[Rfam]
RNA sequence: CACGUCAACGCGCUUUGCUAACGUGGACAGAUAUCGCGUUCUAUAGGCCGCGAUUUGUUGCCACGUCUGCAAAGCGCACUGACGUGG
Numbered sequence: 001c002a003c004g005u006c007a008a009c010g011c012g013c014u015u016u017g018c019u020a021a022c023g024u025g026g027a028c029a030g031a032u033a034u035c036g037c038g039u040u041c042u043a044u045a046g047g048c049c050g051c052g053a054u055u056u057g058u059u060g061c062c063a064c065g066u067c068u069g070c071a072a073a074g075c076g077c078a079c080u081g082a083c084g085u086g087g
Stems, first nucleotide, its partner, number of pairs: 001086007010077009021066001023064004029058001031056001033054006040047002
RNA: MIR7486 microRNA precursor family
Organism: Gossypium lobatum